[Rfam]
RNA sequence: AAGUUGGUGGAAGUCCAACCGAGGUUAGAAGGCUCAAGACUUCGUAGCAGGGGAGGCACUAUGGCGUGAAAGCAAGAUAGUGGAGCCCUCCGACAACAUUUUCUAAAGGGAAAAUGAGCAAAGCUCUAGGUUGUAACCAAA
Numbered sequence: 001a002a003g004u005u006g007g008u009g010g011a012a013g014u015c016c017a018a019c020c021g022a023g024g025u026u027a028g029a030a031g032g033c034u035c036a037a038g039a040c041u042u043c044g045u046a047g048c049a050g051g052g053g054a055g056g057c058a059c060u061a062u063g064g065c066g067u068g069a070a071a072g073c074a075a076g077a078u079a080g081u082g083g084a085g086c087c088c089u090c091c092g093a094c095a096a097c098a099u100u101u102u103c104u105a106a107a108g109g110g111a112a113a114a115u116g117a118g119c120a121a122a123g124c125u126c127u128a129g130g131u132u133g134u135a136a137c138c139a140a141a
Base pairs, nucleotide, nucleotide: 020044021043022042023041024040052091053090054089055088056087057082058081059080060079061078062077066073067072098115099114100113101112102111103110118134119133120132
Rfam assigns this 141-nucleotide RNA to the family "Group II catalytic intron D1-D4-4". Rfam 15.1 lists 840 matches to the family in 506 species. The match comes from Rfam's covariance-model search (100 bits). Gene Ontology term of the family: Group II intron splicing. Group II introns are found in rRNA, tRNA and mRNA of organelles in fungi, plants and protists, and also in mRNA in bacteria.